Rfam assigns this 190-nucleotide RNA sequence from Anaerotignum neopropionicum to the family "6S / SsrS RNA". The family's consensus secondary structure is taken from published work. NCBI's taxonomy places the organism under Bacteria, Bacillati, Clostridia, Lachnospirales, Anaerotignum. On this family, see Wassarman and Storz, Cell 2000: "6S RNA regulates E. coli RNA polymerase activity".

RNA sequence: AAAUUCCUGAAGUGUUCGAGAACUUACCAUAUUUGAACCUACACAACUGACUCGGGAUUCCUAUAUGCAAAAGCUAUGUCAGGCCCCAAGAUAAUUCCCUUUGGGCGGGGGAAGGCAGAUGCUUUGGCUGCGGUUACCCACCUGGCUUAGGCUAGGUGUCAAGCGGUAAGGACGGCACUUUGGGAUAUAU
Numbered sequence: 001a002a003a004u005u006c007c008u009g010a011a012g013u014g015u016u017c018g019a020g021a022a023c024u025u026a027c028c029a030u031a032u033u034u035g036a037a038c039c040u041a042c043a044c045a046a047c048u049g050a051c052u053c054g055g056g057a058u059u060c061c062u063a064u065a066u067g068c069a070a071a072a073g074c075u076a077u078g079u080c081a082g083g084c085c086c087c088a089a090g091a092u093a094a095u096u097c098c099c100u101u102u103g104g105g106c107g108g109g110g111g112a113a114g115g116c117a118g119a120u121g122c123u124u125u126g127g128c129u130g131c132g133g134u135u136a137c138c139c140a141c142c143u144g145g146c147u148u149a150g151g152c153u154a155g156g157u158g159u160c161a162a163g164c165g166g167u168a169a170g171g172a173c174g175g176c177a178c179u180u181u182g183g184g185a186u187a188u189a190u
Stems, first nucleotide, its partner, number of pairs: 002188001005185011017174002032163001034161003037157003054139003060133002065129001068127001070125005079115002084111004
Dot-bracket structure: .(..(((((((((((.((.............(.((((((..............(((...((...(..(.(((((....((...((((....................))))..)).....))))).).)..))...)))...............))).))).).........)))))))))))))..)..